XIST RNA A repeat: a 37-nucleotide RNA sequence from Enhydra lutris. By type it is a small RNA. It scores 54 bits against the family's covariance model. For this family Rfam cites "The Xist RNA A-repeat comprises a novel AUCG tetraloop fold and a platform for multimerization" (Duszczyk et al., RNA, 2011). The family has 54 seed sequences and 900 matches in Rfam 15.1.
RNA sequence: UGGCCUAUCGGGGCCUCGGAUACCUGCUUUUAUUUAU
Numbered sequence: 001u002g003g004c005c006u007a008u009c010g011g012g013g014c015c016u017c018g019g020a021u022a023c024c025u026g027c028u029u030u031u032a033u034u035u036a037u
Stems, first nucleotide, its partner, number of pairs: 003014004017026003